mir-191 microRNA precursor family: a 91-nucleotide sequence from Crocodylus porosus. The family has 24 seed sequences and 621 matches in Rfam 15.1. Pairs were carried over by alignment from the consensus structure, which was predicted with RNAalifold. The source organism's lineage runs through Eukaryota, Dipnotetrapodomorpha, Archelosauria, Archosauria and Crocodylus. For this family Rfam cites "Identification of many microRNAs that copurify with polyribosomes in mammalian neurons" (Kim et al., Proc Natl Acad Sci U S A, 2004).
[Rfam]
RNA sequence: GGCGCGACAGCGGGCAACGGAAUCCCAAAAGCAGCUGUCUUCCGCUCGGCACCUCAGCUGCGCUUGGAUUUCGUUCCCUGCUCUCCCGCCC
Numbered sequence: 001g002g003c004g005c006g007a008c009a010g011c012g013g014g015c016a017a018c019g020g021a022a023u024c025c026c027a028a029a030a031g032c033a034g035c036u037g038u039c040u041u042c043c044g045c046u047c048g049g050c051a052c053c054u055c056a057g058c059u060g061c062g063c064u065u066g067g068a069u070u071u072c073g074u075u076c077c078c079u080g081c082u083c084u085c086c087c088g089c090c091c
Base pairs, nucleotide, nucleotide: 009082010081011080012079013078017074018073019072020071021070022069023068024067025066027065028064031061032060033059034058035057036056037055